[Rfam]
Annotation:
Rfam assigns this 77-nucleotide sequence from Hymenochirus boettgeri to the family "mir-208 microRNA precursor family". Lineage of the source: Eukaryota > Opisthokonta > Euteleostomi > Amphibia > Hymenochirus. A search with the family's covariance model found it, with a score of 72 bits.

RNA sequence: UCCAACAGAGAAGCUUUUUGCUUGUAUUAUGUUUCCACCUGCUGUAUAAGACGAGCAUAAAGCUUGUUUGUUAGAAG
Numbered sequence: 001u002c003c004a005a006c007a008g009a010g011a012a013g014c015u016u017u018u019u020g021c022u023u024g025u026a027u028u029a030u031g032u033u034u035c036c037a038c039c040u041g042c043u044g045u046a047u048a049a050g051a052c053g054a055g056c057a058u059a060a061a062g063c064u065u066g067u068u069u070g071u072u073a074g075a076a077g
Stems, first nucleotide, its partner, number of pairs: 004072003008068002011065007020056001023053002027049006